This 177-nucleotide RNA from Acetatifactor muris belongs to the Rfam family "Lysine riboswitch aptamer".
Pairs were carried over by alignment from the consensus structure, which is taken from published work.
Gene Ontology term of the family: lysine biosynthetic process.
The source organism's lineage runs through Bacteria, Bacillota, Lachnospirales, Lachnospiraceae and Acetatifactor.
[Rfam]
RNA sequence: UGGGAAGAUAGAGGUUGCGUUUUUCAGGAGUACUUUUUUUGAUGCGACAGGCGCAGGAGAUGAGAAGGGAAAGGGGAAUACGCCGAAAGAGGAGAUGGCCUGUAAGUCAAAUCUUGGGCAUGCGGCGAAGAACCGUAUGACUGUCAUUCGGUUUGCGGAUGGAGCGCUAUCAGACGU
Numbered sequence: 001u002g003g004g005a006a007g008a009u010a011g012a013g014g015u016u017g018c019g020u021u022u023u024u025c026a027g028g029a030g031u032a033c034u035u036u037u038u039u040u041g042a043u044g045c046g047a048c049a050g051g052c053g054c055a056g057g058a059g060a061u062g063a064g065a066a067g068g069g070a071a072a073g074g075g076g077a078a079u080a081c082g083c084c085g086a087a088a089g090a091g092g093a094g095a096u097g098g099c100c101u102g103u104a105a106g107u108c109a110a111a112u113c114u115u116g117g118g119c120a121u122g123c124g125g126c127g128a129a130g131a132a133c134c135g136u137a138u139g140a141c142u143g144u145c146a147u148u149c150g151g152u153u154u155g156c157g158g159a160u161g162g163a164g165c166g167c168u169a170u171c172a173g174a175c176g177u
Stems, first nucleotide, its partner, number of pairs: 007171005017083004022078004033068007087115004094108003116142002119139007144162007